[Rfam]
RNA sequence: AGUUCCUUUAAAUUAGCUCAGAGAGGCUGAAAAGGAUGAACGGACGUACGCUUUCAAGGAAGCCGUGCGUAAUUUCGGACAGCCUAGCCGCUUUGAGUGGUGGGCUGUCUUUUCU
Number, nucleotide and partner (000 for none) at each position: 001a000002g000003u000004u036005c035006c034007u033008u032009u031010a000011a000012a000013u030014u029015a028016g027017c026018u025019c000020a000021g000022a000023g000024a000025g018026g017027c016028u015029g014030a013031a009032a008033a007034g006035g005036a004037u000038g000039a000040a000041c000042g000043g000044a070045c069046g068047u067048a066049c065050g063051c062052u061053u060054u059055c000056a000057a000058g000059g054060a053061a052062g051063c050064c000065g049066u048067g047068c046069g045070u044071a000072a000073u000074u000075u000076c000077g110078g109079a108080c107081a106082g105083c104084c103085u102086a101087g000088c100089c099090g098091c097092u000093u000094u000095g000096a000097g091098u090099g089100g088101u086102g085103g084104g083105c082106u081107g080108u079109c078110u077111u000112u000113u000114c000115u000
PyrR binding site: a 115-nucleotide RNA from Lactiplantibacillus plantarum.
Taxonomically the source falls in Lactiplantibacillus (Bacteria, Bacillati, Lactobacillales, Lactobacillaceae).
Rfam's curators write: This family represents the PyrR binding site and terminator structure. This RNA structure is found upstream of a variety of genes involved in pyrimidine biosynthesis and transport. The alignment also includes a portion of the antiterminator structure.
By type it is a cis-regulatory element.
Rfam 15.1 lists 1,498 matches to the family in 930 species.
The family's consensus secondary structure is taken from published work.